[Rfam]
RNA sequence: GAAGUGCGAACCAAGCUGCGGUACAAACCGCGUGAGACUUGGAGCGGGUGCCCGCAAGGACACCCUGCA
Numbered sequence: 001g002a003a004g005u006g007c008g009a010a011c012c013a014a015g016c017u018g019c020g021g022u023a024c025a026a027a028c029c030g031c032g033u034g035a036g037a038c039u040u041g042g043a044g045c046g047g048g049u050g051c052c053c054g055c056a057a058g059g060a061c062a063c064c065c066u067g068c069a
Base pairs, nucleotide, nucleotide: 011042012041013040014039015038018031019030020029021028022027046065047064048063049062050061052059053058
RNA: Transposase-2 RNA